Shown here is an 81-nucleotide RNA sequence from Salvelinus namaycush, a member of the family "mir-26 microRNA precursor family". The literature on the family includes a 2002 paper in Curr Biol by Lagos-Quintana et al., "Identification of tissue-specific microRNAs from mouse". It scores 80 bits against the family's covariance model. Lineage of the source: Eukaryota > Eumetazoa > Deuterostomia > Teleostei > Salvelinus.
RNA sequence: CUUCGGCCUGAUUCAAGUAAUCCAGGAUAGGCUGGUUCCCGCCAGCACGGCCUUUUCUCGAUUACUUGUUUCAGGAGGUGG
Numbered sequence: 001c002u003u004c005g006g007c008c009u010g011a012u013u014c015a016a017g018u019a020a021u022c023c024a025g026g027a028u029a030g031g032c033u034g035g036u037u038c039c040c041g042c043c044a045g046c047a048c049g050g051c052c053u054u055u056u057c058u059c060g061a062u063u064a065c066u067u068g069u070u071u072c073a074g075g076a077g078g079u080g081g
Stems, first nucleotide, its partner, number of pairs: 002080001004078001007075005014068009024058004029053005